[Rfam]
RNA sequence: GCCUGGGUGUGGUGGCUCACGCCUGUAAUCCAAGCUGCUGGGAGGCUGAUGCUGGAGGAUCGUUUGAGCUCAAGAGCUCUGAGCUGCAGUGGACAAUGCCCAUCAGGUGUCCGCACUAAGUUCGAUAUGGUUCUCCUGCGGGAGUGUGAGACUACCAGGUCACCUAAGGACAGGUGAACUGGCCCAGGUCGGGAACGGAGCAGGUCAAAGCCCCCGUACCACUCAGUAGUGAGAUUGCGCCCGUGACUAGAAGCUGUAGUUCAGCCUGAGUAAGAUAGUGAGACUCUGUCAUUUU
Dot-bracket structure: (((.((((((((....))))))))....(((.........)))))).(((((.((....(((((...(((((.(....((((((((((((...(.(..(....(.((((((..(((((.(.(.(((.((((..((.((((....)))).))..)))).))).((...))...(((....(((((....(((....)))....)))))..)))...).......)..))))).)...))))).).)..).)..))))))))))))).))))).....)))))...)).).))))..
RNA: Metazoan signal recognition particle RNA
Organism: Kryptolebias marmoratus